[Rfam]
RNA sequence: GGAACGUGCCAUGAACGAUCGUAUAGUACGAGAGGAACUACGAUUGGGCACCACUGGUGUAUCGGUUGUCCGAGAGGGCAGUUGCCGAGUAGCCACGUGCCGCGGGGUAAGAGCUGAACGCAUCUAAGCUCGAAACCCACAUGAAAAAGACGUUCCACUGAGGACACUCGUAGAAGACGAGUUCAAUAGACUCGGGAUGUACGCAUCAAGGCAACGAGAUGUUGAGUCCACGAGCACUAACAGUCCGAG
Dot-bracket structure: (((((((..((((..((((((((...............))))))))(((((...(((....((((((((((....)))))...)))))....))).)))))..(((....(((((...........)))))....))).))))......))))))).....(((((((((.......)))))....(((.(((((((.....(((((..(....)..)))))....))).))))..)))...))))...
RNA: Archaeal large subunit ribosomal RNA, nucleotides 2663 to 2911
Organism: Halonotius sp. J07HN4